[Rfam]
RNA sequence: AGAAAAGUAGGUGCUGCCCCGCACAGGGGCGACGCUAAUAGACCGAUAAGAAAACAAGGAAAGGCCAACGCCACAAGCAAACAGACGAACAAGCGCCGC
Numbered sequence: 001a002g003a004a005a006a007g008u009a010g011g012u013g014c015u016g017c018c019c020c021g022c023a024c025a026g027g028g029g030c031g032a033c034g035c036u037a038a039u040a041g042a043c044c045g046a047u048a049a050g051a052a053a054a055c056a057a058g059g060a061a062a063g064g065c066c067a068a069c070g071c072c073a074c075a076a077g078c079a080a081a082c083a084g085a086c087g088a089a090c091a092a093g094c095g096c097c098g099c
Stems, first nucleotide, its partner, number of pairs: 012079003015031006063072003
RNA: Burkholderia sRNA Bp1_Cand684_SIPHT
Organism: Paraburkholderia sp. BL23I1N1